[Rfam]
RNA sequence: GAGUGUACCUGUUUGGCGAGUCUAACUGGAGUAUCCAGGAAGGCAUAGGGAAACCGACAUGGCCGCAGAUCGGGUUACCGAUCCAGGGCCGCCGUCUUCAAGGGCGGGGAGUCAAACGGGUACGACCCGAAACCGGACGAUCUACGCGCAAACAAGGUGAAGCAUGGCGAAAGCUAUGUGGAGGCCUGUUAGGGUUGGUGUCUUACAAUACCCUCCCGUGAUUUGCGUGUAGGGGUGAAAGGCCCAUCGAGUCCGGCAACAGCUGGUU
Numbered sequence: 001g002a003g004u005g006u007a008c009c010u011g012u013u014u015g016g017c018g019a020g021u022c023u024a025a026c027u028g029g030a031g032u033a034u035c036c037a038g039g040a041a042g043g044c045a046u047a048g049g050g051a052a053a054c055c056g057a058c059a060u061g062g063c064c065g066c067a068g069a070u071c072g073g074g075u076u077a078c079c080g081a082u083c084c085a086g087g088g089c090c091g092c093c094g095u096c097u098u099c100a101a102g103g104g105c106g107g108g109g110a111g112u113c114a115a116a117c118g119g120g121u122a123c124g125a126c127c128c129g130a131a132a133c134c135g136g137a138c139g140a141u142c143u144a145c146g147c148g149c150a151a152a153c154a155a156g157g158u159g160a161a162g163c164a165u166g167g168c169g170a171a172a173g174c175u176a177u178g179u180g181g182a183g184g185c186c187u188g189u190u191a192g193g194g195u196u197g198g199u200g201u202c203u204u205a206c207a208a209u210a211c212c213c214u215c216c217c218g219u220g221a222u223u224u225g226c227g228u229g230u231a232g233g234g235g236u237g238a239a240a241g242g243c244c245c246a247u248c249g250a251g252u253c254c255g256g257c258a259a260c261a262g263c264u265g266g267u268u
Base pairs, nucleotide, nucleotide: 005123006122007121008120009119010118011117012116013115014114015113016112017111020044021043022042023041026038027037028036029035048055049054061090062089063088064087068083069082070081071080072079073078093106094105095104096103126266127265129263133256134255135254136253137252138251142232143231144230145229146228147227148226149225150224151223152222153220155187156186157185158184162179163178164177165176166175167174168173192217193216194215197213198212200211201210234244235243236242